Shown here is a 63-nucleotide RNA sequence from Otolemur garnettii, a member of the family "U7 small nuclear RNA". About the family: Animal histone pre-mRNAs are spliced by a different mechanism than nuclear pre-mRNAs and self-splicing introns. This processing involves the U7 snRNP, which contains only one RNA species: U7. The 5' end of U7 RNA is thought to base-pair to a conserved spacer element downstream of the cleavage site in histone pre-mRNA. This family contains a number of annotated U7 pseudogenes. Pairs were carried over by alignment from the consensus structure, which was predicted with PFOLD. It scores 48 bits against the family's covariance model.
[Rfam]
RNA sequence: AAGUGUUUUGGCUCUUUUAGAAUUUAUCUAACAGAUUUUCUGGUCCUUUCCAGAAGAGCCCAU
Numbered sequence: 001a002a003g004u005g006u007u008u009u010g011g012c013u014c015u016u017u018u019a020g021a022a023u024u025u026a027u028c029u030a031a032c033a034g035a036u037u038u039u040c041u042g043g044u045c046c047u048u049u050c051c052a053g054a055a056g057a058g059c060c061c062a063u
Stems, first nucleotide, its partner, number of pairs: 034060001036058001037056007
Dot-bracket structure: .................................(.((((((((......))))))).).)...